[Rfam]
RNA: pan motif
Organism: Lysinibacillus composti
RNA sequence: UGGACAGUAUCUUACGAGAACUGUACCAAUCAUUUUUAUUAUUAAACUAUAAAAAUAUCUGCCUUGAUCGUAAAUCGACAGGGACGGAAGA
Numbered sequence: 001u002g003g004a005c006a007g008u009a010u011c012u013u014a015c016g017a018g019a020a021c022u023g024u025a026c027c028a029a030u031c032a033u034u035u036u037u038a039u040u041a042u043u044a045a046a047c048u049a050u051a052a053a054a055a056u057a058u059c060u061g062c063c064u065u066g067a068u069c070g071u072a073a074a075u076c077g078a079c080a081g082g083g084a085c086g087g088a089a090g091a
Base pairs, nucleotide, nucleotide: 001028002027003026004024005023006022007021008020010019011018059087060086061085062083063082064081065080066079068078069077070076